Shown here is a 105-nucleotide sequence from Hevea brasiliensis, a member of the family "MIR403 microRNA precursor family". It scores 91 bits against the family's covariance model. Taxonomically the source falls in Hevea (Eukaryota, Streptophyta, Magnoliopsida, fabids).
RNA sequence: ACAUAUCUCUAGUUUGUGUGUGAAUCGAACCCCAUCCCAUCUCGGCCGUCCAUUUGUAUGGCUAUCCAAGGGUGUUAGAUUCACGCACAAACUCGUGAUCUGUCU
Numbered sequence: 001a002c003a004u005a006u007c008u009c010u011a012g013u014u015u016g017u018g019u020g021u022g023a024a025u026c027g028a029a030c031c032c033c034a035u036c037c038c039a040u041c042u043c044g045g046c047c048g049u050c051c052a053u054u055u056g057u058a059u060g061g062c063u064a065u066c067c068a069a070g071g072g073u074g075u076u077a078g079a080u081u082c083a084c085g086c087a088c089a090a091a092c093u094c095g096u097g098a099u100c101u102g103u104c105u
Stems, first nucleotide, its partner, number of pairs: 001103003005099003011093016028076003037072002048062001050060001